[Rfam]
RNA sequence: UGAUUCAGUUCCUCUCACUGCUUGGAGCCUGAAGUAGUGGGAUUUUAGUCCAUCAUAUAUCUAAAGCUGACUUGUCUUCACUCAGGGCACUGUGGGAAUGGGUUGACUGUCCAUUGGUGCUUUCUGAUUCUUGUAGAGUCCAACAGUU
Numbered sequence: 001u002g003a004u005u006c007a008g009u010u011c012c013u014c015u016c017a018c019u020g021c022u023u024g025g026a027g028c029c030u031g032a033a034g035u036a037g038u039g040g041g042a043u044u045u046u047a048g049u050c051c052a053u054c055a056u057a058u059a060u061c062u063a064a065a066g067c068u069g070a071c072u073u074g075u076c077u078u079c080a081c082u083c084a085g086g087g088c089a090c091u092g093u094g095g096g097a098a099u100g101g102g103u104u105g106a107c108u109g110u111c112c113a114u115u116g117g118u119g120c121u122u123u124c125u126g127a128u129u130c131u132u133g134u135a136g137a138g139u140c141c142a143a144c145a146g147u148u
Stems, first nucleotide, its partner, number of pairs: 001052002005048001013042005019036004069140005082127005087120005095112002098110003
Dot-bracket structure: ((..(.......(((((.((((..........)))).))))).....)..))................(((((........((((((((((...((.(((.......)))))...)))))..)))))........)))))........
Background:
This 148-nucleotide RNA sequence from Moschus moschiferus belongs to the Rfam family "Small nucleolar RNA SNORA79". A search with the family's covariance model found it, with a score of 84 bits. The base pairs follow the family's consensus structure, which was predicted with RNAalifold. ACA65 (SNORA79) is a member of the H/ACA class of snoRNAs that guide the sites of modification of uridines to pseudouridines. This snoRNA was identified by computational screening and its expression in mouse experimentally verified by Northern blot and primer extension analysis. It is annotated as an H/ACA-box small nucleolar RNA. Taxonomically the source falls in Moschus (Eukaryota, Gnathostomata, Dipnotetrapodomorpha, Mammalia).